Annotation: Shown here is a 127-nucleotide RNA sequence from Dipodomys ordii, a member of the family "Small Cajal body specific RNA 23". Pairs were carried over by alignment from the consensus structure, which was predicted with RNAfold. Rfam links the family to the GO terms nucleolus, Cajal body and RNA processing. Rfam describes the family as follows. scaRNAs are a specific class of small nuclear RNAs which localise to the Cajal bodies and guide the modification of RNA polymerase II transcribed spliceosomal RNAs U1, U2, U4, U5 and U12. ACA11 belongs to the H/ACA box class of guide RNAs as it has the predicted hairpin-hinge-hairpin-tail structure,the conserved H/ACA-box motifs and is found associated with GAR1. H/ACA snRNAs are predicted to guide the modification of uridines to pseudouridines in substrate RNAs however, no target RNA has been identified for scaRNA ACA11. The organism belongs to Dipodomys, within Eukaryota. The family has 18 seed sequences and 399 matches in Rfam 15.1. Rfam classes the family as a small Cajal body RNA.

[Rfam]
RNA sequence: GGGCUCACCAGGGCCAGGUGUUCUCCUUGUGGUGAUGACCUGUACCUUUAUGAGCAAGAGUAUCAGGACUGGUUUGGGGGUGUCCCACUUGAGUGGAUGUGGUGAUACCAUGGUUUUCAGAACAACA
Dot-bracket structure: ..(((((....(((..(((.....((....)).....))).)).).....)))))..........(..((((.(((..(((((((((.((....)).)..)).)))))).)))...))))..)....